The record is a 194-nucleotide RNA sequence from Candidatus Schmidhempelia bombi, which matches "Lysine riboswitch aptamer" in Rfam.
NCBI's taxonomy places the organism under Bacteria, Pseudomonadati, Orbales, Candidatus Schmidhempelia, Candidatus Schmidhempelia bombi.

RNA sequence: AUAUAAAGAAGAGGCACAUUACUCAGGCAAGCUAUUUUAGGCAUUAAUGCGAUUAAUUUUAGCUAAAGGGAAAUAAUGCCAAGGUUUGGUCCUUAAUCAUCAUAAGAUCAAAUCGACCACAGGGGCUAAUCCCUUUGGGUUGUCACCUUAUUAUUUAAUAUGAUUAUUAAAAUGGGUGGAGCGCUUCAUGGUUA
Numbered sequence: 001a002u003a004u005a006a007a008g009a010a011g012a013g014g015c016a017c018a019u020u021a022c023u024c025a026g027g028c029a030a031g032c033u034a035u036u037u038u039a040g041g042c043a044u045u046a047a048u049g050c051g052a053u054u055a056a057u058u059u060u061a062g063c064u065a066a067a068g069g070g071a072a073a074u075a076a077u078g079c080c081a082a083g084g085u086u087u088g089g090u091c092c093u094u095a096a097u098c099a100u101c102a103u104a105a106g107a108u109c110a111a112a113u114c115g116a117c118c119a120c121a122g123g124g125g126c127u128a129a130u131c132c133c134u135u136u137g138g139g140u141u142g143u144c145a146c147c148u149u150a151u152u153a154u155u156u157a158a159u160a161u162g163a164u165u166a167u168u169a170a171a172a173u174g175g176g177u178g179g180a181g182c183g184c185u186u187c188a189u190g191g192u193u194a
Base pairs, nucleotide, nucleotide: 006189008187009186010185011184017078018077019076020075021074023072030064031063032062033061034060083114084113085112086111087110088109089108090107091106093104115141116140117139118138121135122134123133124132125131143179144178145177146176147175148174